Background:
Rfam assigns this 40-nucleotide RNA to the family "L31-Actinobacteria ribosomal protein leader". Rfam classes the family as a cis-regulatory leader. The literature on the family includes a 2020 paper in BMC Microbiol by Eckert and Weinberg, "Discovery of 20 novel ribosomal leader candidates in bacteria and archaea".

[Rfam]
RNA sequence: GCGGCUCCGGUUCACCUCGGUCCCCCGGGGACCCGGCGCC
Number, nucleotide and partner (000 for none) at each position: 001g000002c000003g040004g039005c038006u000007c036008c035009g034010g033011u000012u000013c000014a000015c030016c029017u028018c027019g026020g025021u000022c000023c000024c000025c020026c019027g018028g017029g016030g015031a000032c000033c010034c009035g008036g007037c000038g005039c004040c003